[Rfam]
Overview:
A member of the RNA family "mir-5928 microRNA precursor family" from Haemonchus placei, 75 nucleotides long. It scores 69 bits against the family's covariance model. Gene Ontology terms of the family: RISC complex and miRNA-mediated post-transcriptional gene silencing. Pairs were carried over by alignment from the consensus structure, which was predicted with RNAalifold.

RNA sequence: GGCAGAAACUUGAAGUAGGGUAGAUCAGUAGGAUCAGCUGAUCAUACUAAUCUACUCUACUUCAAAUUUGAUCCC
Numbered sequence: 001g002g003c004a005g006a007a008a009c010u011u012g013a014a015g016u017a018g019g020g021u022a023g024a025u026c027a028g029u030a031g032g033a034u035c036a037g038c039u040g041a042u043c044a045u046a047c048u049a050a051u052c053u054a055c056u057c058u059a060c061u062u063c064a065a066a067u068u069u070g071a072u073c074c075c
Stems, first nucleotide, its partner, number of pairs: 001074002006069003011064013025050001027048004032043004